Background
A member of the RNA family "SAM-I/IV (S-adenosyl methionine) riboswitch aptamer", 89 nucleotides long. The family is grouped with related families in Rfam's "SAM clan".
RNA sequence: AAAAAGCAUGGAGAGAGGUAAAAUCCUCAGCAACCUAGAAAGCUAACUAAGGUGCUUAAAUAUGUGGUUUAUAACAAAAAAUAGCUUUU
Numbered sequence: 001a002a003a004a005a006g007c008a009u010g011g012a013g014a015g016a017g018g019u020a021a022a023a024u025c026c027u028c029a030g031c032a033a034c035c036u037a038g039a040a041a042g043c044u045a046a047c048u049a050a051g052g053u054g055c056u057u058a059a060a061u062a063u064g065u066g067g068u069u070u071a072u073a074a075c076a077a078a079a080a081a082u083a084g085c086u087u088u089u
Base pairs, nucleotide, nucleotide: 006065007064008063009062010061015028016027017026018025029056030055031054034052035051036050037048038047041087042086044084067075068074069073
It is one of the family's seed sequences. On this family, see Weinberg et al., RNA 2008: "The aptamer core of SAM-IV riboswitches mimics the ligand-binding site of SAM-I riboswitches". The family's consensus secondary structure is taken from published work.